[Rfam]
RNA: Plastid-clpP 5UTR RNA
RNA sequence: AAUUCUCUUCGUAGGAACAAAGAGAAACAAAUUUAGUCUAUAGUCGAUAAGUGACAAUACGCAAUAGAG
Numbered sequence: 001a002a003u004u005c006u007c008u009u010c011g012u013a014g015g016a017a018c019a020a021a022g023a024g025a026a027a028c029a030a031a032u033u034u035a036g037u038c039u040a041u042a043g044u045c046g047a048u049a050a051g052u053g054a055c056a057a058u059a060c061g062c063a064a065u066a067g068a069g
Stems, first nucleotide, its partner, number of pairs: 003022002006019001008017003044067001051060003